[Rfam]
RNA: Manganese Mn2+ riboswitch aptamer (yybP-ykoY)
Organism: Pelistega ratti
RNA sequence: GCAAUACUCAUUGGGGAGUAGUCUCUUCUGCCGAAGGUUUACGUCAACAUACUUAGCCAAUAGCUAUGGCGUAAACGACGAAAUUUUUUCGUUU
Numbered sequence: 001g002c003a004a005u006a007c008u009c010a011u012u013g014g015g016g017a018g019u020a021g022u023c024u025c026u027u028c029u030g031c032c033g034a035a036g037g038u039u040u041a042c043g044u045c046a047a048c049a050u051a052c053u054u055a056g057c058c059a060a061u062a063g064c065u066a067u068g069g070c071g072u073a074a075a076c077g078a079c080g081a082a083a084u085u086u087u088u089u090c091g092u093u094u
Stems, first nucleotide, its partner, number of pairs: 026035003037076010054066004077093007